[Rfam]
RNA sequence: UGCGCCUGCCCAUUCUCGGGGCGUUUCCUCCCUAGACUUUCAAGGGCCGCAGGCUUCUGCGGCCCUUUUCUUUUGGUCAG
Dot-bracket structure: .......((((.......)))).....................(((((((((....)))))))))...............
Numbered sequence: 001u002g003c004g005c006c007u008g009c010c011c012a013u014u015c016u017c018g019g020g021g022c023g024u025u026u027c028c029u030c031c032c033u034a035g036a037c038u039u040u041c042a043a044g045g046g047c048c049g050c051a052g053g054c055u056u057c058u059g060c061g062g063c064c065c066u067u068u069u070c071u072u073u074u075g076g077u078c079a080g
Stems, first nucleotide, its partner, number of pairs: 008022004044065009